[Rfam]
Shown here is a 248-nucleotide RNA sequence, a member of the family "Streptomyces sRNA 4677". Rfam describes the family as follows. Located in the intergenic region between anti-sigma factor SCO4677 gene and a putative regulatory protein gene SCO4676. scr4677 expression requires the SCO4677 activity and scr4677 sRNA itself seem to affect the levels of the SCO4676-associated transcripts. The match comes from Rfam's covariance-model search (95 bits).
RNA sequence: AAGUCCUUUGGGAAGAAGAAACUCUCAAAACCCAACCCCACCCAACCCAUCCCGGUGGACCUCAGCAGGCCCCCGCGCGCCCGCGAGGGCGCCCGUCACUCACACGGGUGAGGUUGGCCAACUGAGCUGGAUUUCGCCCGGGUUGCCUGGCAUAUGCUCACGAAACCAACUUCAGACAUGAGAUGGCCCCCGCCGGGACUGGAAUCCCGAGCGAGGGCCUGACCAAGAGGAAGCAGCAGAUCUUCCCG
Dot-bracket structure: ...............................................................................................((((((....))))))..............(.(((...........................)))).......................(((((.(((.((((......))))..))).))))).........(((((........)))))..